Background
This 122-nucleotide sequence from Virgibacillus salexigens belongs to the Rfam family "SAM riboswitch aptamer (S box leader)". The source organism's lineage runs through Bacteria, Bacillati, Bacillota, Caryophanales and Virgibacillus. The base pairs follow the family's consensus structure, which is taken from published work. Rfam links the family to the GO term regulation of gene expression. The SAM riboswitch is found upstream of a number of genes which code for proteins involved in methionine or cysteine biosynthesis in Gram-positive bacteria.
RNA sequence: CUCUUAUCAAGAGUGGUGGAGGGAAUAGGCCCUGUGAAGCCCGGCAACCUGGAAGUGAUUCAAAAGAUUACUCUUUCGGUGCUAAAUCCUACAGAUCAAAUCUGUGAUCUGGAAGAUAAGAG
Numbered sequence: 001c002u003c004u005u006a007u008c009a010a011g012a013g014u015g016g017u018g019g020a021g022g023g024a025a026u027a028g029g030c031c032c033u034g035u036g037a038a039g040c041c042c043g044g045c046a047a048c049c050u051g052g053a054a055g056u057g058a059u060u061c062a063a064a065a066g067a068u069u070a071c072u073c074u075u076u077c078g079g080u081g082c083u084a085a086a087u088c089c090u091a092c093a094g095a096u097c098a099a100a101u102c103u104g105u106g107a108u109c110u111g112g113a114a115g116a117u118a119a120g121a122g
Stems, first nucleotide, its partner, number of pairs: 001122008013042001015041003021032003026091004043083004048079002051074003087114001092111006